[Rfam]
FMN riboswitch aptamer (RFN element): a 141-nucleotide RNA sequence from Leucobacter chromiiresistens. Gene Ontology term of the family: FMN binding. The source organism's lineage runs through Bacteria, Actinomycetota, Actinomycetes, Microbacteriaceae and Leucobacter. It scores 85 bits against the family's covariance model. The family's consensus secondary structure is taken from published work.

RNA sequence: AUCGUGUUCCGGGGUCGGUGUGAUUCCGAACCGGCGGUCAGAGUCCGCGAGCGUCGCACCUGCGAUGCUGAACCGGUGGAAUUCCGGUACCGACGGUGAUGGACGCCCUGCGCGUUCGAGUCCGGAUGAGAGGAACGCGCG
Numbered sequence: 001a002u003c004g005u006g007u008u009c010c011g012g013g014g015u016c017g018g019u020g021u022g023a024u025u026c027c028g029a030a031c032c033g034g035c036g037g038u039c040a041g042a043g044u045c046c047g048c049g050a051g052c053g054u055c056g057c058a059c060c061u062g063c064g065a066u067g068c069u070g071a072a073c074c075g076g077u078g079g080a081a082u083u084c085c086g087g088u089a090c091c092g093a094c095g096g097u098g099a100u101g102g103a104c105g106c107c108c109u110g111c112g113c114g115u116u117c118g119a120g121u122c123c124g125g126a127u128g129a130g131a132g133g134a135a136c137g138c139g140c141g
Stems, first nucleotide, its partner, number of pairs: 003139008016028003032092002034048004043090002051068003072088005094124003